[Rfam]
RNA sequence: CGGUGGAGGCCGGAUCCUGGGCUGUGUCCCAGCGCCCUGGGCUCCGGGGCCUGCGCUGUUUGAUUCGCGCUCCCGGCCCGCAGCCCCCU
Numbered sequence: 001c002g003g004u005g006g007a008g009g010c011c012g013g014a015u016c017c018u019g020g021g022c023u024g025u026g027u028c029c030c031a032g033c034g035c036c037c038u039g040g041g042c043u044c045c046g047g048g049g050c051c052u053g054c055g056c057u058g059u060u061u062g063a064u065u066c067g068c069g070c071u072c073c074c075g076g077c078c079c080g081c082a083g084c085c086c087c088c089u
Base pairs, nucleotide, nucleotide: 002088003087005085006084009081010080012078013077016076017075019073020072021071023069024068025067026066027063028062030058031057032056033055034054035053039051041050042049043048
Overview
A member of the RNA family "mir-8799 microRNA precursor family" from Canis lupus, 89 nucleotides long. Its Rfam clan is "mir-8791 microRNA precursor clan". Its family is annotated with RISC complex and miRNA-mediated post-transcriptional gene silencing in the Gene Ontology.